About this RNA: c-di-AMP riboswitch aptamer (ydaO/yuaA leader): a 172-nucleotide RNA from Actinomadura coerulea. NCBI's taxonomy places the organism under Bacteria, Bacillati, Actinomycetes, Streptosporangiales, Actinomadura.
RNA sequence: GGCACGUCACCGCCGAAUCCGCGGACCGCCGUGCCCCGCAUGCGCGGCCGCCGUGGAACCGGGGACCCACUGCGUCCUUUUCGGGGUGAAUCGGCCUGCCUUCGCGGGCCGUAGGGCGGCUUCCACGCCCGAACCCGUCAGCUAACCCGGUAGGCGGCAUGGAAGUCGAGGA
Numbered sequence: 001g002g003c004a005c006g007u008c009a010c011c012g013c014c015g016a017a018u019c020c021g022c023g024g025a026c027c028g029c030c031g032u033g034c035c036c037c038g039c040a041u042g043c044g045c046g047g048c049c050g051c052c053g054u055g056g057a058a059c060c061g062g063g064g065a066c067c068c069a070c071u072g073c074g075u076c077c078u079u080u081u082c083g084g085g086g087u088g089a090a091u092c093g094g095c096c097u098g099c100c101u102u103c104g105c106g107g108g109c110c111g112u113a114g115g116g117c118g119g120c121u122u123c124c125a126c127g128c129c130c131g132a133a134c135c136c137g138u139c140a141g142c143u144a145a146c147c148c149g150g151u152a153g154g155c156g157g158c159a160u161g162g163a164a165g166u167c168g169a170g171g172a
Stems, first nucleotide, its partner, number of pairs: 011156004018057007058151006068083001084136003092111006114130004